[Rfam]
RNA: RNA Staph. aureus E (RoxS)
Organism: Bacillus salinus
RNA sequence: GUGAAAUGAUUCACAAACAAAUACCCCUUUGUUUGACCGUGAAAAAUUUCUCCCAUCCCCUUUGUUGUCUUACUUGAAGGCUUGGCCCGUUGCCAAGCCUUCCUU
Numbered sequence: 001g002u003g004a005a006a007u008g009a010u011u012c013a014c015a016a017a018c019a020a021a022u023a024c025c026c027c028u029u030u031g032u033u034u035g036a037c038c039g040u041g042a043a044a045a046a047u048u049u050c051u052c053c054c055a056u057c058c059c060c061u062u063u064g065u066u067g068u069c070u071u072a073c074u075u076g077a078a079g080g081c082u083u084g085g086c087c088c089g090u091u092g093c094c095a096a097g098c099c100u101u102c103c104u105u
Base pairs, nucleotide, nucleotide: 003050004049005048006047007046011042012041013040014039018035019034020033021032022031023030066072076102077101078100079099080098081097082096083095084094085093086092